[Rfam]
RNA: ZMP/ZTP riboswitch aptamer (pfl RNA motif)
RNA sequence: UGAAGCACAGGCAACUGACGGAACGUGGAGCACCACAUGGAAGCCUGCUGUCAUACGUACUGUCGACCGUCUGGGCAAACCUG
Numbered sequence: 001u002g003a004a005g006c007a008c009a010g011g012c013a014a015c016u017g018a019c020g021g022a023a024c025g026u027g028g029a030g031c032a033c034c035a036c037a038u039g040g041a042a043g044c045c046u047g048c049u050g051u052c053a054u055a056c057g058u059a060c061u062g063u064c065g066a067c068c069g070u071c072u073g074g075g076c077a078a079a080c081c082u083g
Stems, first nucleotide, its partner, number of pairs: 004051001008047005015040002017071005025036004061077004